[Rfam]
RNA sequence: ACCGAUCUUCGGGGCGGGGUGAAAGUCCCCACCGGCGGUAGAGUCCGCGAGCUGAACAGCAUGAGCUGGUGUAAUUCCGGCACCGACAGUUACAGUCUGGAUGAUAGAAGAUAGGC
Numbered sequence: 001a002c003c004g005a006u007c008u009u010c011g012g013g014g015c016g017g018g019g020u021g022a023a024a025g026u027c028c029c030c031a032c033c034g035g036c037g038g039u040a041g042a043g044u045c046c047g048c049g050a051g052c053u054g055a056a057c058a059g060c061a062u063g064a065g066c067u068g069g070u071g072u073a074a075u076u077c078c079g080g081c082a083c084c085g086a087c088a089g090u091u092a093c094a095g096u097c098u099g100g101a102u103g104a105u106a107g108a109a110g111a112u113a114g115g116c
Stems, first nucleotide, its partner, number of pairs: 003114001005112006017029003031096002033085002035048004043083002053059001065081005087099003
The family of this 116-nucleotide sequence from Pseudoflavonifractor capillosus is "FMN riboswitch aptamer (RFN element)". The base pairs follow the family's consensus structure, which is taken from published work. The organism belongs to Pseudoflavonifractor capillosus, within Bacteria.